Record summary
Rfam assigns this 135-nucleotide RNA from Monodelphis domestica to the family "Small nucleolar RNA SNORA38". By type it is an H/ACA-box small nucleolar RNA. Rfam's curators write: ACA38 is a member of the H/ACA class of snoRNA that guide the sites of modification of uridines to pseudouridines.
[Rfam]
RNA sequence: ACCUCCCACAAAGGCGUGUCUGUGGCUUCCCAUCCAUAGAUACGUAAGAACUGGAGGCAAAGAAAUGAGGAUUAGGAAAAGUUCAAGACUGGCUUACUCAACCCUUGCUGGUCUAGGACUUCCUGUCCAACAAUA
Numbered sequence: 001a002c003c004u005c006c007c008a009c010a011a012a013g014g015c016g017u018g019u020c021u022g023u024g025g026c027u028u029c030c031c032a033u034c035c036a037u038a039g040a041u042a043c044g045u046a047a048g049a050a051c052u053g054g055a056g057g058c059a060a061a062g063a064a065a066u067g068a069g070g071a072u073u074a075g076g077a078a079a080a081g082u083u084c085a086a087g088a089c090u091g092g093c094u095u096a097c098u099c100a101a102c103c104c105u106u107g108c109u110g111g112u113c114u115a116g117g118a119c120u121u122c123c124u125g126u127c128c129a130a131c132a133a134u135a
Base pairs, nucleotide, nucleotide: 002057003056004055005054006053015044016043017042018041019040020039021038024030025029069128070127071126073125091113092112093111094110097107
The family has 25 seed sequences and 628 matches in Rfam 15.1. The source organism's lineage runs through Eukaryota, Opisthokonta, Sarcopterygii, Amniota and Monodelphis. Pairs were carried over by alignment from the consensus structure, which was predicted with RNAfold. Rfam links the family to the GO terms nucleolus, Cajal body and RNA processing.